[Rfam]
RNA sequence: GUGCAUCCAGCAGGAAUGAACCUACGAAUUUGCAAUAGAGUUGGGCGCUUUAACCAUUCAGCCAUGGAUGC
Dot-bracket structure: ..((((((.(.(((......))).)............(.((((((.(.......).)))))))..))))))
The record is a 71-nucleotide sequence from Musa balbisiana, which matches "Plastid-ycf2 5UTR RNA" in Rfam. For this family Rfam cites "Retrograde signaling in plants: A critical review focusing on the GUN pathway and beyond" (Richter et al., Plant Commun, 2023). Plastid ycf2 is a non-coding RNA (ncRNA) recognised in plastids. It was found in the prime untranslated region (5UTR) of ycf2 genes, it presents a tRNA-like motif which suggests it can be involved in mRNA maturation, particularly involved in defining the precise 5' end of the transcript.